[Rfam]
Rfam assigns this 84-nucleotide RNA to the family "skipping-rope RNA".
RNA sequence: AGAUUUUGAGGUGGAAAAGAUUUCCCAUGCGCUUACUUUUAGUAAAUUAUCAGAAAUGCAGGAUACGCUGACCUGCAAAAGUAU
Numbered sequence: 001a002g003a004u005u006u007u008g009a010g011g012u013g014g015a016a017a018a019g020a021u022u023u024c025c026c027a028u029g030c031g032c033u034u035a036c037u038u039u040u041a042g043u044a045a046a047u048u049a050u051c052a053g054a055a056a057u058g059c060a061g062g063a064u065a066c067g068c069u070g071a072c073c074u075g076c077a078a079a080a081g082u083a084u
Stems, first nucleotide, its partner, number of pairs: 001084001003082005011028004019069001021067001030053001033045004058076005
Rfam classes the family as a small RNA.